[Rfam]
RNA sequence: AGUCGUUAGAGCGACUAUAAACAGGCUUUAAGCUCUAAGCGUUCCUGUCAUUGGUUCAAUGAUAAUUGCCAAUCAAUGGCAGGGGGUAGCA
Numbered sequence: 001a002g003u004c005g006u007u008a009g010a011g012c013g014a015c016u017a018u019a020a021a022c023a024g025g026c027u028u029u030a031a032g033c034u035c036u037a038a039g040c041g042u043u044c045c046u047g048u049c050a051u052u053g054g055u056u057c058a059a060u061g062a063u064a065a066u067u068g069c070c071a072a073u074c075a076a077u078g079g080c081a082g083g084g085g086g087u088a089g090c091a
Base pairs, nucleotide, nucleotide: 001016002015003014004013006038007037008036009035010034011033025090026089027088032040042085043084044083045082046081047080048079049078050077051076052075053074054073055072056071
Pistol ribozyme: a 91-nucleotide sequence from Roseburia sp. 1XD42-69. Gene Ontology term of the family: catalytic activity. Lineage of the source: Bacteria > Clostridia > Lachnospirales > Lachnospiraceae > Roseburia.